The family of this 141-nucleotide RNA sequence from Aneurinibacillus migulanus is "c-di-AMP riboswitch aptamer (ydaO/yuaA leader)".
The match comes from Rfam's covariance-model search (84 bits).
From the family's description: This family represents a conserved RNA structure found upstream of the ydaO and yuaA genes in Bacillus subtilis and related genes in other bacteria.
NCBI's taxonomy places the organism under Bacteria, Bacilli, Caryophanales, Paenibacillaceae, Aneurinibacillus.
[Rfam]
Nucleotides: 141
Stems, first nucleotide, its partner, number of pairs: 011126004018032003033121006041050002051106003059080002062077006083100004
Number, partner (000 for none) and nucleotide at each position: 001000g002000a003000u004000a005000u006000c007000a008000a009000a010000a011126a012125g013124c014123c015000g016000a017000g018032a019031c020030u021000u022000c023000a024000c025000a026000g027000u028000g029000a030020a031019g032018u033121g034120c035119a036118g037117g038116g039000g040000a041050u042049a043000u044000u045000u046000u047000u048000u049042u050041g051106g052105g053104g054000u055000g056000a057000a058000u059080u060079g061000c062077g063076u064075a065074c066073g067072g068000u069000u070000c071000g072067c073066c074065g075064u076063a077062u078000a079060c080059a081000u082000a083100g084099g085098g086097u087000a088000a089000c090000c091000u092000c093000c094000u095000g096000a097086a098085u099084c100083c101000g102000a103000a104053c105052c106051c107000g108000a109000c110000a111000a112000c113000u114000a115000a116038c117037c118036c119035u120034g121033u122000a123014g124013g125012c126011u127000a128000u129000c130000a131000g132000g133000a134000g135000a136000g137000g138000a139000g140000c141000u